Rfam assigns this 384-nucleotide part of an RNA from Helicobacter bilis to the family "Bacterial large subunit ribosomal RNA".

RNA sequence: GAUAAAAGUGGUGAGAAUCCACUUCGCCGAAAGUCUAAGGUUUCCUACGCGAUGCUCGUCAUCGUAGGGUUAGUCGGGUCCUAAGACAAGUCAGAAAUGGGUAGUCGAUGGAAAAUGGGUUAAUAUUCCCAUACCAACAUUAGUGUGCGAUGGGGGGACGCAUAGGGCUAAGUAGCGUUAGCUGAUGGAAGUGCUAAUUUAAAAGCGUAGAUUGAGAGAUAGGUAAAUCCGCUCUUGUAUUCGAAACUUGAAUAGCUUGUUGCGAUCUUCGGAUCAAGAUGAGUGCUACUGACGCCGUCGUGCCAAGAAAAGCCUCUAAGUUUAGCUAAUGUUGCCCGUACCGCAAACCGACACAGGUAGAUGAGAUGAGUAUUCUAAGGCGCG
Numbered sequence: 001g002a003u004a005a006a007a008g009u010g011g012u013g014a015g016a017a018u019c020c021a022c023u024u025c026g027c028c029g030a031a032a033g034u035c036u037a038a039g040g041u042u043u044c045c046u047a048c049g050c051g052a053u054g055c056u057c058g059u060c061a062u063c064g065u066a067g068g069g070u071u072a073g074u075c076g077g078g079u080c081c082u083a084a085g086a087c088a089a090g091u092c093a094g095a096a097a098u099g100g101g102u103a104g105u106c107g108a109u110g111g112a113a114a115a116u117g118g119g120u121u122a123a124u125a126u127u128c129c130c131a132u133a134c135c136a137a138c139a140u141u142a143g144u145g146u147g148c149g150a151u152g153g154g155g156g157g158a159c160g161c162a163u164a165g166g167g168c169u170a171a172g173u174a175g176c177g178u179u180a181g182c183u184g185a186u187g188g189a190a191g192u193g194c195u196a197a198u199u200u201a202a203a204a205g206c207g208u209a210g211a212u213u214g215a216g217a218g219a220u221a222g223g224u225a226a227a228u229c230c231g232c233u234c235u236u237g238u239a240u241u242c243g244a245a246a247c248u249u250g251a252a253u254a255g256c257u258u259g260u261u262g263c264g265a266u267c268u269u270c271g272g273a274u275c276a277a278g279a280u281g282a283g284u285g286c287u288a289c290u291g292a293c294g295c296c297g298u299c300g301u302g303c304c305a306a307g308a309a310a311a312g313c314c315u316c317u318a319a320g321u322u323u324a325g326c327u328a329a330u331g332u333u334g335c336c337c338g339u340a341c342c343g344c345a346a347a348c349c350g351a352c353a354c355a356g357g358u359a360g361a362u363g364a365g366a367u368g369a370g371u372a373u374u375c376u377a378a379g380g381c382g383c384g
Base pairs, nucleotide, nucleotide: 006024007023008022009021010020011019025382026381027380028379033362034361035360036359039342040341044068045067046066047065048064049063053061054060075338076337077336078335080111081110085106086105087104089102091100092099093098115132116131117130118129119128135334136333137332138331139330140329141328142327143326144325147321148320152316153315154314155313160303161302162301163300166296167295168294171290172289173288174287175286177198178197179196180195181194182193199254203249204248205247210242211241214236215235216234217233218232220231222230223229256283257282264275265274266273267272348357349356364376365375366374